Rfam assigns this 175-nucleotide RNA sequence from Arthrobacter sp. FB24 to the family "c-di-AMP riboswitch aptamer (ydaO/yuaA leader)".
A reference for the family is Barrick et al. (2004), "New RNA motifs suggest an expanded scope for riboswitches in bacterial genetic control", Proc Natl Acad Sci U S A.
The organism belongs to Arthrobacter, within Bacteria.

RNA sequence: CGCCAAACUCUGCCGCUACCCGGAUUUCCUCAUGAUCAGGCAGAGGCGGGGGACCCAGGUCUCCGGGCAUUCUGCAUAGCCGCCCUUGGGGUGAAGCCGACACGUGAAGUUCCGUGCGGCCGGAUGACCUCAUCCGAACCCGACAGCUAACUCCGCCGGCAUCGAGAGGCAACCA
Numbered sequence: 001c002g003c004c005a006a007a008c009u010c011u012g013c014c015g016c017u018a019c020c021c022g023g024a025u026u027u028c029c030u031c032a033u034g035a036u037c038a039g040g041c042a043g044a045g046g047c048g049g050g051g052g053a054c055c056c057a058g059g060u061c062u063c064c065g066g067g068c069a070u071u072c073u074g075c076a077u078a079g080c081c082g083c084c085c086u087u088g089g090g091g092u093g094a095a096g097c098c099g100a101c102a103c104g105u106g107a108a109g110u111u112c113c114g115u116g117c118g119g120c121c122g123g124a125u126g127a128c129c130u131c132a133u134c135c136g137a138a139c140c141c142g143a144c145a146g147c148u149a150a151c152u153c154c155g156c157c158g159g160c161a162u163c164g165a166g167a168g169g170c171a172a173c174c175a
Stems, first nucleotide, its partner, number of pairs: 002160003008045007046156006056088004089141003097119003122135004